Rfam assigns this 67-nucleotide RNA sequence from Domibacillus iocasae to the family "Bacillaceae-1 RNA". By type it is a small RNA. A search with the family's covariance model found it, with a score of 86 bits.
RNA sequence: AAUAAAGGAUCGAAUGCUAAGUUCGCCGCGUCCUGCGGCAACGCAUUCGUGACCCACAUCCUGUGGG
Numbered sequence: 001a002a003u004a005a006a007g008g009a010u011c012g013a014a015u016g017c018u019a020a021g022u023u024c025g026c027c028g029c030g031u032c033c034u035g036c037g038g039c040a041a042c043g044c045a046u047u048c049g050u051g052a053c054c055c056a057c058a059u060c061c062u063g064u065g066g067g
Base pairs, nucleotide, nucleotide: 011049012048013047014046015045016044017043025039026038027037028036029035053067054066055065056064057063